[Rfam]
RNA sequence: CGGUUUCUUGCUUCAACAGUGCUUGAAUGGAACCAG
Numbered sequence: 001c002g003g004u005u006u007c008u009u010g011c012u013u014c015a016a017c018a019g020u021g022c023u024u025g026a027a028u029g030g031a032a033c034c035a036g
Stems, first nucleotide, its partner, number of pairs: 001036001003034001005032004010028001012027005017021001

Description:
This 36-nucleotide RNA sequence from Rattus norvegicus belongs to the Rfam family "Iron response element I". Lineage of the source: Eukaryota > Craniata > Mammalia > Euarchontoglires > Rattus. The family has 62 seed sequences and 6,829 matches in Rfam 15.1. The match comes from Rfam's covariance-model search (47 bits). The base pairs follow the family's consensus structure, which is taken from published work. It is annotated as a cis-regulatory element. Gene Ontology term of the family: response to iron ion.